[Rfam]
RNA: IS605-orfB-I RNA
Nucleotides: 215
Base pairs, nucleotide, nucleotide: 001051002050003049004048005047006046007045008044010040011039012038013037014036015035017034018033019032020031021030022028066120067119068118069117070116071115072114073113080109081108082107083106084105085104086103091100092099126143127142128141129140130139132212133211134210135209136208137207138164145158146157147156148155149154169205170204171203172202173201174200175199176197177196178195179194180193181192
Number, partner (000 for none) and nucleotide at each position: 001051g002050u003049c004048c005047u006046a007045u008044a009000a010040a011039g012038a013037u014036g015035c016000a017034u018033c019032a020031a021030c022028g023000c024000u025000a026000g027000a028022u029000a030021g031020u032019u033018g034017a035015g036014c037013a038012u039011u040010u041000c042000c043000c044008u045007g046006u047005a048004g049003g050002a051001u052000g053000a054000a055000g056000u057000u058000u059000a060000u061000u062000a063000g064000a065000a066120a067119c068118u069117c070116u071115g072114g073113u074000a075000a076000c077000a078000a079000u080109u081108u082107u083106c084105a085104u086103u087000g088000u089000g090000u091100g092099g093000c094000u095000a096000a097000a098000g099092u100091c101000g102000a103086a104085a105084u106083g107082g108081a109080a110000u111000g112000a113073g114072u115071c116070a117069g118068a119067g120066u121000g122000g123000a124000a125000u126143a127142g128141g129140u130139u131000a132212a133211c134210c135209g136208u137207a138164a139130g140129a141128c142127c143126u144000u145158g146157a147156g148155u149154u150000g151000a152000a153000a154149a155148a156147c157146u158145c159000u160000a161000a162000a163000a164138u165000u166000g167000a168000g169205c170204u171203a172202g173201a174200g175199a176197u177196g178195u179194g180193g181192a182000u183000u184000u185000c186000u187000g188000a189000a190000a191000u192181u193180u194179c195178g196177c197176a198000u199175u200174u201173u202172c203171u204170a205169g206000u207137u208136a209135c210134g211133g212132u213000u214000u215000u